Shown here is a 112-nucleotide RNA from Pongo abelii, a member of the family "Mitochondrial DNA control region secondary structure A". Pairs were carried over by alignment from the consensus structure, which is taken from published work. The match comes from Rfam's covariance-model search (45 bits). By type it is an antisense RNA. The organism belongs to Pongo, within Eukaryota. Rfam 15.1 lists 795 matches to the family in 62 species.
RNA sequence: AUUCUCUGUGGCACGCAUUUUAACUACUGUGUAAGUAUUGACCAUCAGCACUAAUACAUUAAUACUUUUAUGUGCUUCGUGCAUGACUGCUAGUCCCCGUGGAUAAUAUACA
Numbered sequence: 001a002u003u004c005u006c007u008g009u010g011g012c013a014c015g016c017a018u019u020u021u022a023a024c025u026a027c028u029g030u031g032u033a034a035g036u037a038u039u040g041a042c043c044a045u046c047a048g049c050a051c052u053a054a055u056a057c058a059u060u061a062a063u064a065c066u067u068u069u070a071u072g073u074g075c076u077u078c079g080u081g082c083a084u085g086a087c088u089g090c091u092a093g094u095c096c097c098c099g100u101g102g103a104u105a106a107u108a109u110a111c112a
Base pairs, nucleotide, nucleotide: 005103006102007101008100009099010098011095015090016089017088021034023032024031025029035065036064039061040060041059070084071083072082073081074080
Dot-bracket structure: ....(((((((...(((...(.(((...).)).)((..(((.................)))..))....(((((.....)))))...)))....)..)))))).........